[Rfam]
Rfam assigns this 168-nucleotide RNA from Oculatella sp. FACHB-28 to the family "Group II catalytic intron D1-D4-3".
Rfam links the family to the GO term Group II intron splicing.
On this family, see Bonen and Vogel, Trends Genet 2001: "The ins and outs of group II introns".
RNA sequence: GCUCCUGUGAAGGAGGGUCUGAAGGAAGCUGGCGGCAAAUCUGCGAACCGACGAACAGAAACGACAUAGAAGGCUGAGAUUCCUGGGGCGAGUUAGCACAACAUAACAAAGCCCAAUGGUUCAGGGAACACAAGUAUUUGACGCGGUUGUGCAGAGACAGUUCACAUU
Numbered sequence: 001g002c003u004c005c006u007g008u009g010a011a012g013g014a015g016g017g018u019c020u021g022a023a024g025g026a027a028g029c030u031g032g033c034g035g036c037a038a039a040u041c042u043g044c045g046a047a048c049c050g051a052c053g054a055a056c057a058g059a060a061a062c063g064a065c066a067u068a069g070a071a072g073g074c075u076g077a078g079a080u081u082c083c084u085g086g087g088g089c090g091a092g093u094u095a096g097c098a099c100a101a102c103a104u105a106a107c108a109a110a111g112c113c114c115a116a117u118g119g120u121u122c123a124g125g126g127a128a129c130a131c132a133a134g135u136a137u138u139u140g141a142c143g144c145g146g147u148u149g150u151g152c153a154g155a156g157a158c159a160g161u162u163c164a165c166a167u168u
Stems, first nucleotide, its partner, number of pairs: 002015005028168001030166002035161002040155006046148005062143002065140002073135003084130001086114004092107004